[Rfam]
RNA sequence: ACCCAUUGUGCAACUGCUCUCAAACCAAGACCUAUUAGGCAGUAUAAUACUUCGUCUUUCAUAUCCAGUAGUGAGGGAUUACUGGAAAUAAGUUUCGCA
Numbered sequence: 001a002c003c004c005a006u007u008g009u010g011c012a013a014c015u016g017c018u019c020u021c022a023a024a025c026c027a028a029g030a031c032c033u034a035u036u037a038g039g040c041a042g043u044a045u046a047a048u049a050c051u052u053c054g055u056c057u058u059u060c061a062u063a064u065c066c067a068g069u070a071g072u073g074a075g076g077g078a079u080u081a082c083u084g085g086a087a088a089u090a091a092g093u094u095u096c097g098c099a
Base pairs, nucleotide, nucleotide: 014042015041016040017039018038022036027058028057029056030055031054064086065085066084067083068082069081070080
RNA: PhotoRC-II RNA